[Rfam]
RNA sequence: AAUGUCACCUGAACAGUAGCAUUUUCUAUGUCUUUUUUGGAAAGUGCUACCUUGUUUGGGCGACAUUU
Numbered sequence: 001a002a003u004g005u006c007a008c009c010u011g012a013a014c015a016g017u018a019g020c021a022u023u024u025u026c027u028a029u030g031u032c033u034u035u036u037u038u039g040g041a042a043a044g045u046g047c048u049a050c051c052u053u054g055u056u057u058g059g060g061c062g063a064c065a066u067u068u
Stems, first nucleotide, its partner, number of pairs: 004064003008060004013055002015052002018048006025041003
A member of the RNA family "miR-430 microRNA precursor family" from Callorhinchus milii, 68 nucleotides long. On this family, see Giraldez et al., Science 2005: "MicroRNAs regulate brain morphogenesis in zebrafish". Its Rfam clan is "mir-290 clan". The match comes from Rfam's covariance-model search (48 bits). Rfam links the family to the GO terms RISC complex and miRNA-mediated post-transcriptional gene silencing. The source organism's lineage runs through Eukaryota, Chordata, Gnathostomata, Chondrichthyes and Callorhinchus.